[Rfam]
RNA sequence: AAUAAAUAAGGACGGAACAGGCGGCUGUCGCCAGAAAACUAUAUGGUUUGAUUAGGAGAUGUUGGAUCGCCACCCAGCUAUUUAUU
Numbered sequence: 001a002a003u004a005a006a007u008a009a010g011g012a013c014g015g016a017a018c019a020g021g022c023g024g025c026u027g028u029c030g031c032c033a034g035a036a037a038a039c040u041a042u043a044u045g046g047u048u049u050g051a052u053u054a055g056g057a058g059a060u061g062u063u064g065g066a067u068c069g070c071c072a073c074c075c076a077g078c079u080a081u082u083u084a085u086u
Base pairs, nucleotide, nucleotide: 001086002085003084004083005082006081007080008079011029012028013027014026015025020071021070022069023068031056032050033049034048035047061078062077063076064075065074
Rfam assigns this 86-nucleotide sequence to the family "skipping-rope RNA".
The base pairs follow the family's consensus structure, which is taken from published work.